[Rfam]
RNA: SAM riboswitch aptamer (S box leader)
RNA sequence: UUCUUAUCCAGAGUGGUAGAGGGACAGGCCCUAUGACACCCGGCAACCAUCAAGUCAAAAUGACAUGAACGGUGCUAAUUCCUGCAAAGGUAUGACCUUUGAAAGAUGAGAG
Numbered sequence: 001u002u003c004u005u006a007u008c009c010a011g012a013g014u015g016g017u018a019g020a021g022g023g024a025c026a027g028g029c030c031c032u033a034u035g036a037c038a039c040c041c042g043g044c045a046a047c048c049a050u051c052a053a054g055u056c057a058a059a060a061u062g063a064c065a066u067g068a069a070c071g072g073u074g075c076u077a078a079u080u081c082c083u084g085c086a087a088a089g090g091u092a093u094g095a096c097c098u099u100u101g102a103a104a105g106a107u108g109a110g111a112g
Stems, first nucleotide, its partner, number of pairs: 001112008013041001015040003021031003025084004042076004047072002050068003080104001085101006